[Rfam]
RNA sequence: GGUUUACACCCAGUUACUCAAGGUAAUUUGGAGUUCCGACCAUUCUUAGGAAUGCGUUGACAACUUGAAUUUUUGGAUAACAGCUUCACCGGGGUAUCCGGAGGAGCGAU
Numbered sequence: 001g002g003u004u005u006a007c008a009c010c011c012a013g014u015u016a017c018u019c020a021a022g023g024u025a026a027u028u029u030g031g032a033g034u035u036c037c038g039a040c041c042a043u044u045c046u047u048a049g050g051a052a053u054g055c056g057u058u059g060a061c062a063a064c065u066u067g068a069a070u071u072u073u074u075g076g077a078u079a080a081c082a083g084c085u086u087c088a089c090c091g092g093g094g095u096a097u098c099c100g101g102a103g104g105a106g107c108g109a110u
Base pairs, nucleotide, nucleotide: 008034009031010030013027014026015025016024017023037059038058039057040056041054042053043052044051045050085108087106089104090103093099094098
Overview
This 110-nucleotide RNA sequence from Caenorhabditis angaria belongs to the Rfam family "SL2 RNA". A search with the family's covariance model found it, with a score of 71 bits. A reference for the family is Evans and Blumenthal (2000), "trans splicing of polycistronic Caenorhabditis elegans pre-mRNAs: analysis of the SL2 RNA", Mol Cell Biol. Rfam classes the family as a non-coding RNA gene. Its Rfam clan is "SL clan". The base pairs follow the family's consensus structure, which is taken from published work.